Annotation: mir-B6 microRNA precursor family: an 83-nucleotide RNA from Varicellovirus bovinealpha1. Rfam links the family to the GO terms RISC complex and miRNA-mediated post-transcriptional gene silencing. The family's consensus secondary structure was predicted with RNAalifold. Rfam's curators put it in the seed alignment.
RNA sequence: CGCGGAGGGCCAGGACCCGGCGCCGGAGACGCGGCGCUGGCGUCCGCCGCCACGUUCCCCGCGUCGGGCACUUGCCCUCCGCG
Numbered sequence: 001c002g003c004g005g006a007g008g009g010c011c012a013g014g015a016c017c018c019g020g021c022g023c024c025g026g027a028g029a030c031g032c033g034g035c036g037c038u039g040g041c042g043u044c045c046g047c048c049g050c051c052a053c054g055u056u057c058c059c060c061g062c063g064u065c066g067g068g069c070a071c072u073u074g075c076c077c078u079c080c081g082c083g
Base pairs, nucleotide, nucleotide: 001083002082003081004080005079006078007077008076009075010074012072013071016068017067018066019065020064021063022062023061025059026058029055030054031053033051034050035049036048039045040044